[Rfam]
RNA sequence: GCCCUGUGGUUGCUGGGCACUGCUGGCCCGUGCAGUGCUUCAGUUGGAUGGAGGGGCCCACAGUGACUCUGUGAUUUAUGCAGGGAGUCUGUGAUCCCUGAGCAGCCUCCCCAGCCCACUCACAGGCACACAC
Numbered sequence: 001g002c003c004c005u006g007u008g009g010u011u012g013c014u015g016g017g018c019a020c021u022g023c024u025g026g027c028c029c030g031u032g033c034a035g036u037g038c039u040u041c042a043g044u045u046g047g048a049u050g051g052a053g054g055g056g057c058c059c060a061c062a063g064u065g066a067c068u069c070u071g072u073g074a075u076u077u078a079u080g081c082a083g084g085g086a087g088u089c090u091g092u093g094a095u096c097c098c099u100g101a102g103c104a105g106c107c108u109c110c111c112c113a114g115c116c117c118a119c120u121c122a123c124a125g126g127c128a129c130a131c132a133c
Stems, first nucleotide, its partner, number of pairs: 001058001003056002007050002010046001012044006019036005069125001071123004076118001080115002083111003087107001089105004
RNA: Small nucleolar RNA SNORA84
Organism: Sitta europaea